A member of the RNA family "Mammalian CPEB3 ribozyme" from Alligator mississippiensis, 76 nucleotides long. Taxonomically the source falls in Alligator (Eukaryota, Opisthokonta, Sauria, Crocodylia).

[Rfam]
RNA sequence: GGUUACAAGUUUGAAGCUACAGCAGAAGUGCUCAUGAUGCAGCCUGUCAGAUUCCAACAAACCUGUGAAUUCUGUU
Numbered sequence: 001g002g003u004u005a006c007a008a009g010u011u012u013g014a015a016g017c018u019a020c021a022g023c024a025g026a027a028g029u030g031c032u033c034a035u036g037a038u039g040c041a042g043c044c045u046g047u048c049a050g051a052u053u054c055c056a057a058c059a060a061a062c063c064u065g066u067g068a069a070u071u072c073u074g075u076u
Base pairs, nucleotide, nucleotide: 013044016043017042018041021076022075023074024073025072026071027070028040029039030038048065049064050063052061053060